[Rfam]
RNA sequence: CCUCAGGGGAGUAGUCGCUUCUGGCCCCCAGCCAGAAGGUGCAUGUCAACAUAAUUGGCUGAAAACGAGCCAUGGUAUGCACGGCAGUAGCUUGACGAGACCUGUGGUGGAACUGUACAGAC
Numbered sequence: 001c002c003u004c005a006g007g008g009g010a011g012u013a014g015u016c017g018c019u020u021c022u023g024g025c026c027c028c029c030a031g032c033c034a035g036a037a038g039g040u041g042c043a044u045g046u047c048a049a050c051a052u053a054a055u056u057g058g059c060u061g062a063a064a065a066c067g068a069g070c071c072a073u074g075g076u077a078u079g080c081a082c083g084g085c086a087g088u089a090g091c092u093u094g095a096c097g098a099g100a101c102c103u104g105u106g107g108u109g110g111a112a113c114u115g116u117a118c119a120g121a122c
Base pairs, nucleotide, nucleotide: 019037020036021035039082040081041080042079043078044077045076046075047074048073056072057071058070059069060068
Rfam assigns this 122-nucleotide sequence from Aliidiomarina soli to the family "Manganese Mn2+ riboswitch aptamer (yybP-ykoY)". Rfam 15.1 lists 1,126 matches to the family in 1,062 species. This RNA was originally discovered in E. coli during a large scale screen and was named SraF. The family was later found to exist upstream of related families of protein genes in many bacteria, including the the yybP and ykoK genes in B. subtilis. The specific functions of these proteins are unknown, but this structured RNA element may be involved in their genetic regulation as a riboswitch. A search with the family's covariance model found it, with a score of 46 bits.